[Rfam]
RNA sequence: AAACGACGUUGCGGGAGAGGCCGGAUGAAACGAUACCGGCGCCGAAGGAGCAACCGCCCCGGAAACUCUCAGGCAGAAGGACCGCCCGUCGGCA
Numbered sequence: 001a002a003a004c005g006a007c008g009u010u011g012c013g014g015g016a017g018a019g020g021c022c023g024g025a026u027g028a029a030a031c032g033a034u035a036c037c038g039g040c041g042c043c044g045a046a047g048g049a050g051c052a053a054c055c056g057c058c059c060c061g062g063a064a065a066c067u068c069u070c071a072g073g074c075a076g077a078a079g080g081a082c083c084g085c086c087c088g089u090c091g092g093c094a
Stems, first nucleotide, its partner, number of pairs: 006089003011085004021039004041074003044070002048068003054062002